This 116-nucleotide RNA from Brachypodium distachyon belongs to the Rfam family "MIR5070 microRNA precursor family".
The match comes from Rfam's covariance-model search (119 bits).
Gene Ontology terms of the family: miRNA-mediated post-transcriptional gene silencing and RISC complex.
Lineage of the source: Eukaryota > Embryophyta > Petrosaviidae > Brachypodieae > Brachypodium.

RNA sequence: AAGGGUAUCCUUUGACCCUUUUUAGUUCAACCAAAUGAACUAAAAUUUUAAAUUGACAUAACUUAUUGAAAAACUAAUUCGUUUGUUUGAACUAAGAAGGGUCAAAGGGUACCCUG
Numbered sequence: 001a002a003g004g005g006u007a008u009c010c011u012u013u014g015a016c017c018c019u020u021u022u023u024a025g026u027u028c029a030a031c032c033a034a035a036u037g038a039a040c041u042a043a044a045a046u047u048u049u050a051a052a053u054u055g056a057c058a059u060a061a062c063u064u065a066u067u068g069a070a071a072a073a074c075u076a077a078u079u080c081g082u083u084u085g086u087u088u089g090a091a092c093u094a095a096g097a098a099g100g101g102u103c104a105a106a107g108g109g110u111a112c113c114c115u116g
Base pairs, nucleotide, nucleotide: 002115003114004113005112006111007110008109009108010107011106012105013104014103015102016101017100018099019098020097021096022095023094024093025092026091027090028089029088030087032085033084034083035082036081037080038079039078041076042075